Shown here is a 72-nucleotide RNA from Orthohepacivirus hominis, a member of the family "Hepatitis C virus stem-loop SL2531 and SL2549AU". NCBI's taxonomy places the organism under Viruses, Kitrinoviricota, Amarillovirales, Orthohepacivirus, Hepatitis C virus genotype 6.
[Rfam]
RNA sequence: UCCUAGCUGAUGCACGGGUUUGUGCCUGUUUGUGGUUAAUGUUCCUGGUUGGCCAAGCAGAGGCAGCGUUGG
Numbered sequence: 001u002c003c004u005a006g007c008u009g010a011u012g013c014a015c016g017g018g019u020u021u022g023u024g025c026c027u028g029u030u031u032g033u034g035g036u037u038a039a040u041g042u043u044c045c046u047g048g049u050u051g052g053c054c055a056a057g058c059a060g061a062g063g064c065a066g067c068g069u070u071g072g
Stems, first nucleotide, its partner, number of pairs: 006023002009020003024067002027065005034058001037055001